[Rfam]
RNA sequence: GCCCUGUUAGUUCAGUUGGGAGAACGCUAGAUAAUUUUUUAUCAUAGAAAUGCAGGUUCGAUUCCUGCACUGGGCU
Numbered sequence: 001g002c003c004c005u006g007u008u009a010g011u012u013c014a015g016u017u018g019g020g021a022g023a024a025c026g027c028u029a030g031a032u033a034a035u036u037u038u039u040u041a042u043c044a045u046a047g048a049a050a051u052g053c054a055g056g057u058u059c060g061a062u063u064c065c066u067g068c069a070c071u072g073g074g075c076u
Base pairs, nucleotide, nucleotide: 001075002074003073004072006070007069010025011024012023013022027047028046029045052068053067054066055065056064
Source information
The family of this 76-nucleotide RNA sequence from Glomus cerebriforme is "tRNA". The family's consensus secondary structure is taken from published work. It scores 46 bits against the family's covariance model. The source organism's lineage runs through Eukaryota, Opisthokonta, Glomeromycetes, Glomerales and Glomus. It is annotated as a transfer RNA.